[Rfam]
RNA: MIR2655 microRNA precursor family
RNA sequence: CCCUUAUCUUUUUAAAAGUUUCAAGUUGGUCCCUUAUCUUUUUUUUAGGUUUCAAGUUGGUCCCUUCUAUCAAUUUUUUUACUGUUACCGUUAAAUUUGGACACGUGUUAUCUGUCCAAGUGUGCCAUGUGUCCAAAUUAGUUUGCCACGUGUCCAAAUUUAACGGAAAUAGUUAAAAAAUUGUCAGAAGGGAUCAACUUGAAACCUAAAAUAAAGAUAAGGGACCAACUUAAAACCUAAAAUAAAGAUAAGGGA
Numbered sequence: 001c002c003c004u005u006a007u008c009u010u011u012u013u014a015a016a017a018g019u020u021u022c023a024a025g026u027u028g029g030u031c032c033c034u035u036a037u038c039u040u041u042u043u044u045u046u047a048g049g050u051u052u053c054a055a056g057u058u059g060g061u062c063c064c065u066u067c068u069a070u071c072a073a074u075u076u077u078u079u080u081a082c083u084g085u086u087a088c089c090g091u092u093a094a095a096u097u098u099g100g101a102c103a104c105g106u107g108u109u110a111u112c113u114g115u116c117c118a119a120g121u122g123u124g125c126c127a128u129g130u131g132u133c134c135a136a137a138u139u140a141g142u143u144u145g146c147c148a149c150g151u152g153u154c155c156a157a158a159u160u161u162a163a164c165g166g167a168a169a170u171a172g173u174u175a176a177a178a179a180a181u182u183g184u185c186a187g188a189a190g191g192g193a194u195c196a197a198c199u200u201g202a203a204a205c206c207u208a209a210a211a212u213a214a215a216g217a218u219a220a221g222g223g224a225c226c227a228a229c230u231u232a233a234a235a236c237c238u239a240a241a242a243u244a245a246a247g248a249u250a251a252g253g254g255a
Stems, first nucleotide, its partner, number of pairs: 002253007024230003028226003032222010043211002046208003